[Rfam]
RNA: SucA RNA motif
RNA sequence: GCGCAAUCCGCUAAACGGUCAGGCCGUGGCGCGGAAGGUUUCGUAACCCGCACUUCCUCGAGAAACUCGAAGAAAGGUGAGCG
Numbered sequence: 001g002c003g004c005a006a007u008c009c010g011c012u013a014a015a016c017g018g019u020c021a022g023g024c025c026g027u028g029g030c031g032c033g034g035a036a037g038g039u040u041u042c043g044u045a046a047c048c049c050g051c052a053c054u055u056c057c058u059c060g061a062g063a064a065a066c067u068c069g070a071a072g073a074a075a076g077g078u079g080a081g082c083g
Stems, first nucleotide, its partner, number of pairs: 002083003007035005016026004037048004049079003056072001058070005